[Rfam]
RNA sequence: CUUGGCCGGGAUCGCCAUCCACCAGCGCGUUGCGCCCGUGGGUGCCGUUGCC
Numbered sequence: 001c002u003u004g005g006c007c008g009g010g011a012u013c014g015c016c017a018u019c020c021a022c023c024a025g026c027g028c029g030u031u032g033c034g035c036c037c038g039u040g041g042g043u044g045c046c047g048u049u050g051c052c
Base pairs, nucleotide, nucleotide: 016044017043018042019041020040021039022038025035026034027033028032
Dot-bracket structure: ...............(((((((..((((...))))..)))))))........
A member of the RNA family "ffh sRNA" from Gemmobacter megaterium, 52 nucleotides long. The organism belongs to Gemmobacter, within Bacteria. The base pairs follow the family's consensus structure, which is taken from published work. A search with the family's covariance model found it, with a score of 60 bits.